This 187-nucleotide RNA sequence from Desulfomarina profundi belongs to the Rfam family "Group II catalytic intron D1-D4-3". Pairs were carried over by alignment from the consensus structure. Lineage of the source: Bacteria > Pseudomonadati > Desulfobulbales > Desulfobulbaceae > Desulfomarina.
[Rfam]
RNA sequence: GUAUUGGUGACAAUGCUUCUGGAGGAAGCCGCCUGAAAUAUUAGGUACCGCGAAAGUGCGGGGUGACGAACAGGAAUCGGGUAUAAGGCGCAUACGUCGGGACGAGUCUGCACAACAAGAUAAAGUCCUCUAUCCAUUAUAAGGCGUAUCCGUAAACCCGGCAUUCACGCACUGAAAGACAUGUGUU
Numbered sequence: 001g002u003a004u005u006g007g008u009g010a011c012a013a014u015g016c017u018u019c020u021g022g023a024g025g026a027a028g029c030c031g032c033c034u035g036a037a038a039u040a041u042u043a044g045g046u047a048c049c050g051c052g053a054a055a056g057u058g059c060g061g062g063g064u065g066a067c068g069a070a071c072a073g074g075a076a077u078c079g080g081g082u083a084u085a086a087g088g089c090g091c092a093u094a095c096g097u098c099g100g101g102a103c104g105a106g107u108c109u110g111c112a113c114a115a116c117a118a119g120a121u122a123a124a125g126u127c128c129u130c131u132a133u134c135c136a137u138u139a140u141a142a143g144g145c146g147u148a149u150c151c152g153u154a155a156a157c158c159c160g161g162c163a164u165u166c167a168c169g170c171a172c173u174g175a176a177a178g179a180c181a182u183g184u185g186u187u
Base pairs, nucleotide, nucleotide: 001016002015003014004013005012006011044187045186046185047184048183051178055173056172057171058170059169060168061166062165063164064163065162077161078160079159080158081157082156088153089152090151092149093148094147095146096145097144098143100128101127102126103125106121107120108119109118
Dot-bracket structure: ((((((....))))))...........................(((((..(...(((((((((((...........((((((.....(((.(((((((.((((..((((........))))...))))..............))))))).)))..))))))))))).))))))....)....)))))